The record is a 73-nucleotide RNA sequence from Anolis carolinensis, which matches "mir-30 microRNA precursor family" in Rfam. This family consists of the mammalian microRNA (miRNA) precursor mir-30a. The base pairs follow the family's consensus structure, which was predicted with PFOLD.
[Rfam]
RNA sequence: UAGUUCAUGUAAACAUCCUACACUCAGCUGUAUCACAUGAAAUGGCUGGGAGAUGAAUGUUUACUUCAACUGA
Numbered sequence: 001u002a003g004u005u006c007a008u009g010u011a012a013a014c015a016u017c018c019u020a021c022a023c024u025c026a027g028c029u030g031u032a033u034c035a036c037a038u039g040a041a042a043u044g045g046c047u048g049g050g051a052g053a054u055g056a057a058u059g060u061u062u063a064c065u066u067c068a069a070c071u072g073a
Stems, first nucleotide, its partner, number of pairs: 001072005007066001009064008018055001020054001023050007